This 66-nucleotide RNA from Prevotella sp. F0091 belongs to the Rfam family "lysM-Prevotella RNA". The sequence is in the family's curated seed alignment. Rfam classes the family as a cis-regulatory element. The base pairs follow the family's consensus structure, which is taken from published work.
RNA sequence: CCGUUAGAAAGGGGCAUGAAAAUCGGUCCCGUGCCUAUAAGGCAUCAGAGUUUGAAAUAAAAUAAC
Numbered sequence: 001c002c003g004u005u006a007g008a009a010a011g012g013g014g015c016a017u018g019a020a021a022a023u024c025g026g027u028c029c030c031g032u033g034c035c036u037a038u039a040a041g042g043c044a045u046c047a048g049a050g051u052u053u054g055a056a057a058u059a060a061a062a063u064a065a066c
Stems, first nucleotide, its partner, number of pairs: 011030005032044004